[Rfam]
RNA sequence: UGGUCAUCAAGAAAGGUGGAGGGAAUAGACCCGUUGAAACCUUGACAACCGAUUCCGUCCUUGACGGAACACGGUGCCGCAUUCUACUUCCACAAGUCUGUACCAAGAAGGUCAGACAGGAAGAAAGAUGAGUG
Numbered sequence: 001u002g003g004u005c006a007u008c009a010a011g012a013a014a015g016g017u018g019g020a021g022g023g024a025a026u027a028g029a030c031c032c033g034u035u036g037a038a039a040c041c042u043u044g045a046c047a048a049c050c051g052a053u054u055c056c057g058u059c060c061u062u063g064a065c066g067g068a069a070c071a072c073g074g075u076g077c078c079g080c081a082u083u084c085u086a087c088u089u090c091c092a093c094a095a096g097u098c099u100g101u102a103c104c105a106a107g108a109a110g111g112u113c114a115g116a117c118a119g120g121a122a123g124a125a126a127g128a129u130g131a132g133u134g
Base pairs, nucleotide, nucleotide: 001134002133004131005130006129007128008127013043014042015041016040017039021032022031023030026086027085028084029083044078046076047075049074050073051070053068054067082126087123088122089121090120091119
Annotation:
Shown here is a 134-nucleotide sequence from Chlorobium sp., a member of the family "SAM riboswitch aptamer (S box leader)". The base pairs follow the family's consensus structure, which is taken from published work. NCBI's taxonomy places the organism under Bacteria, Pseudomonadati, Chlorobiales, Chlorobiaceae, Chlorobium.